Rfam assigns this 65-nucleotide RNA from Arenibacter nanhaiticus to the family "S15-Flavobacteria ribosomal protein leader". The match comes from Rfam's covariance-model search (70 bits). For this family Rfam cites "Discovery of 20 novel ribosomal leader candidates in bacteria and archaea" (Eckert and Weinberg, BMC Microbiol, 2020). By type it is a cis-regulatory leader. Its Rfam clan is "Ribosomal Protein S15 Leader clan". Lineage of the source: Bacteria > Bacteroidota > Flavobacteriales > Flavobacteriaceae > Arenibacter.

RNA sequence: UAUAUUUGCGCCCUUGACCGAAUUUCGGUCAUGUACAUAAAAAUCAUUAAAACAAUAUUGGAAUG
Numbered sequence: 001u002a003u004a005u006u007u008g009c010g011c012c013c014u015u016g017a018c019c020g021a022a023u024u025u026c027g028g029u030c031a032u033g034u035a036c037a038u039a040a041a042a043a044u045c046a047u048u049a050a051a052a053c054a055a056u057a058u059u060g061g062a063a064u065g
Stems, first nucleotide, its partner, number of pairs: 015031005